[Rfam]
RNA sequence: ACAAUAUUCGGCCGUCGGUCUACCGAGCAAUGUCACUCGCUGGGUGGAAGAUCUUGCCUUUUUAUU
Numbered sequence: 001a002c003a004a005u006a007u008u009c010g011g012c013c014g015u016c017g018g019u020c021u022a023c024c025g026a027g028c029a030a031u032g033u034c035a036c037u038c039g040c041u042g043g044g045u046g047g048a049a050g051a052u053c054u055u056g057c058c059u060u061u062u063u064a065u066u
Stems, first nucleotide, its partner, number of pairs: 004063001006061001010057001011055001014052003019048006026041003
RNA: mir-2774 microRNA precursor family
Organism: Bombyx mori